[Rfam]
Rfam assigns this 492-nucleotide RNA sequence from Monodelphis domestica to the family "Vertebrate telomerase RNA". The family's consensus secondary structure is taken from published work. A search with the family's covariance model found it, with a score of 137 bits. NCBI's taxonomy places the organism under Eukaryota, Deuterostomia, Teleostomi, Theria, Monodelphis. It is annotated as a non-coding RNA gene. The literature on the family includes a 2000 paper in Cell by Chen et al., "Secondary structure of vertebrate telomerase RNA". Rfam links the family to the GO terms telomere maintenance via telomerase, telomerase activity and telomerase catalytic core complex. Telomerase is a ribonucleoprotein reverse transcriptase that synthesises telomeric DNA. Telomerase RNAs differ greatly in sequence and structure between vertebrates, ciliates and yeasts, but they share a 5' pseudoknot structure close to the template sequence. Vertebrate telomerase RNAs have a 3' H/ACA snoRNA-like domain. The family is grouped with related families in Rfam's "Telomerase clan".
RNA sequence: GAGCAGCGGGUUCGUCCGUCCUGGUUCUUCUAACCCUAAAUACGUGCCGGUGGUGGCGGCUCCUCCUGGGUGGUGCUCACUGUUUUGGUGGCUGACUUUCAGCGGGCAGGAGGAACCGGAGCUGAGCCGGAGAGAUGCGCAAAAACGUCAGCUGAGGCCGGGCGGCCCCGCUCGUGGCCCGUCCGCCCCGUCCGGGCUCGGCCCCGGCCCGAAUCCCCUGGGGGCGUCCUCCGCCAGGCCUGCGCUAGCCCUCGGAGCCCCAUCUGCCCGCGAGCAGAGGCGGCGGCCGUCUCGGGGCCCCUGCGUGCGGGGGCAUCCACUGCGGUCGCCAAGAGUUGGGCUCUGUCAGCCUUUGGGUGCUCGGGGUGCCGGGGGCUCUUACGUAGGCCGGGCGUGGGGCGGGGGCGCAGGGAGAGUAAACGUGAGCGGCGUCCAGCCAAUGAGGCGCUCCCUCGAGCUGUGGGAGCUGCCCCGGGCUCGGCUCAGACACCC
Numbered sequence: 001g002a003g004c005a006g007c008g009g010g011u012u013c014g015u016c017c018g019u020c021c022u023g024g025u026u027c028u029u030c031u032a033a034c035c036c037u038a039a040a041u042a043c044g045u046g047c048c049g050g051u052g053g054u055g056g057c058g059g060c061u062c063c064u065c066c067u068g069g070g071u072g073g074u075g076c077u078c079a080c081u082g083u084u085u086u087g088g089u090g091g092c093u094g095a096c097u098u099u100c101a102g103c104g105g106g107c108a109g110g111a112g113g114a115a116c117c118g119g120a121g122c123u124g125a126g127c128c129g130g131a132g133a134g135a136u137g138c139g140c141a142a143a144a145a146c147g148u149c150a151g152c153u154g155a156g157g158c159c160g161g162g163c164g165g166c167c168c169c170g171c172u173c174g175u176g177g178c179c180c181g182u183c184c185g186c187c188c189c190g191u192c193c194g195g196g197c198u199c200g201g202c203c204c205c206g207g208c209c210c211g212a213a214u215c216c217c218c219u220g221g222g223g224g225c226g227u228c229c230u231c232c233g234c235c236a237g238g239c240c241u242g243c244g245c246u247a248g249c250c251c252u253c254g255g256a257g258c259c260c261c262a263u264c265u266g267c268c269c270g271c272g273a274g275c276a277g278a279g280g281c282g283g284c285g286g287c288c289g290u291c292u293c294g295g296g297g298c299c300c301c302u303g304c305g306u307g308c309g310g311g312g313g314c315a316u317c318c319a320c321u322g323c324g325g326u327c328g329c330c331a332a333g334a335g336u337u338g339g340g341c342u343c344u345g346u347c348a349g350c351c352u353u354u355g356g357g358u359g360c361u362c363g364g365g366g367u368g369c370c371g372g373g374g375g376c377u378c379u380u381a382c383g384u385a386g387g388c389c390g391g392g393c394g395u396g397g398g399g400c401g402g403g404g405g406c407g408c409a410g411g412g413a414g415a416g417u418a419a420a421c422g423u424g425a426g427c428g429g430c431g432u433c434c435a436g437c438c439a440a441u442g443a444g445g446c447g448c449u450c451c452c453u454c455g456a457g458c459u460g461u462g463g464g465a466g467c468u469g470c471c472c473c474g475g476g477c478u479c480g481g482c483u484c485a486g487a488c489a490c491c492c
Stems, first nucleotide, its partner, number of pairs: 005172006012165007020157002061114005074108005080102003091152006097145003237389005249375007258357003282330009294318003332344004424484004429479001431477004444471004449465004